RNA sequence: AUACUUACCUGGCACAGGAGAGCCGCGAUCUUGAAGGCGGUUUUCUCAGGGAGAGGCCCACCAUUGCACUCCGGCGGUGCUGACCCUUGCGAUUAACCCAAAUGUGGUUAACUCGAGUCAAAGAC
Numbered sequence: 001a002u003a004c005u006u007a008c009c010u011g012g013c014a015c016a017g018g019a020g021a022g023c024c025g026c027g028a029u030c031u032u033g034a035a036g037g038c039g040g041u042u043u044u045c046u047c048a049g050g051g052a053g054a055g056g057c058c059c060a061c062c063a064u065u066g067c068a069c070u071c072c073g074g075c076g077g078u079g080c081u082g083a084c085c086c087u088u089g090c091g092a093u094u095a096a097c098c099c100a101a102a103u104g105u106g107g108u109u110a111a112c113u114c115g116a117g118u119c120a121a122a123g124a125c
Stems, first nucleotide, its partner, number of pairs: 012119001014118002017046010048088004053084001055081003058077002061074002090115003093111003097107002